The family of this 66-nucleotide sequence from Corynebacterium testudinoris is "L31-Corynebacteriaceae ribosomal protein leader". For this family Rfam cites "Discovery of 20 novel ribosomal leader candidates in bacteria and archaea" (Eckert and Weinberg, BMC Microbiol, 2020). The base pairs follow the family's consensus structure, which is taken from published work. NCBI's taxonomy places the organism under Bacteria, Bacillati, Actinomycetes, Mycobacteriales, Corynebacterium.

[Rfam]
RNA sequence: ACUCAGGCACGAUCGUGGCCUCUGUUCACCACGCCGCGAACCGACCUGAUGUUCCAUCCUGAGGGA
Numbered sequence: 001a002c003u004c005a006g007g008c009a010c011g012a013u014c015g016u017g018g019c020c021u022c023u024g025u026u027c028a029c030c031a032c033g034c035c036g037c038g039a040a041c042c043g044a045c046c047u048g049a050u051g052u053u054c055c056a057u058c059c060u061g062a063g064g065g066a
Stems, first nucleotide, its partner, number of pairs: 001052002004048004013039007